RNA sequence: CUGUGGCGCCGGGCCCCUCUGGCGAUAGCAACGCAUGCUGUCGUGAUGUCGGAGCCACUCC
Numbered sequence: 001c002u003g004u005g006g007c008g009c010c011g012g013g014c015c016c017c018u019c020u021g022g023c024g025a026u027a028g029c030a031a032c033g034c035a036u037g038c039u040g041u042c043g044u045g046a047u048g049u050c051g052g053a054g055c056c057a058c059u060c061c
Stems, first nucleotide, its partner, number of pairs: 006055002009052004022044008
Dot-bracket structure: .....((.((((.........((((((((.......))))))))....)))).))......
RNA: terC RNA
Organism: Devosia litorisediminis